[Rfam]
RNA sequence: AGUGUGCGAUAAACAUGCCUCCACGUGGUGCACACUGGGCAACGUAUUCUUAUACGGCAAAAAGUCUAUA
Numbered sequence: 001a002g003u004g005u006g007c008g009a010u011a012a013a014c015a016u017g018c019c020u021c022c023a024c025g026u027g028g029u030g031c032a033c034a035c036u037g038g039g040c041a042a043c044g045u046a047u048u049c050u051u052a053u054a055c056g057g058c059a060a061a062a063a064g065u066c067u068a069u070a
Stems, first nucleotide, its partner, number of pairs: 001036007017029003043056005

Rfam assigns this 70-nucleotide sequence from Rodentolepis nana to the family "HDV ribozyme from F. prausnitzii". The literature on the family includes a 2009 paper in Science by Webb et al., "Widespread occurrence of self-cleaving ribozymes". NCBI's taxonomy places the organism under Eukaryota, Lophotrochozoa, Rhabditophora, Cestoda, Rodentolepis. Its family is annotated with catalytic activity in the Gene Ontology.